[Rfam]
RNA sequence: AGAACAUGAGGCGAUGGGGCUCGCCGGAAGUGCUGCCACGCAGCUGAUGGCCCCUACCCGGGA
Numbered sequence: 001a002g003a004a005c006a007u008g009a010g011g012c013g014a015u016g017g018g019g020c021u022c023g024c025c026g027g028a029a030g031u032g033c034u035g036c037c038a039c040g041c042a043g044c045u046g047a048u049g050g051c052c053c054c055u056a057c058c059c060g061g062g063a
Stems, first nucleotide, its partner, number of pairs: 010025004016054006032044004
RNA: Fluoride riboswitch aptamer (crcB RNA motif)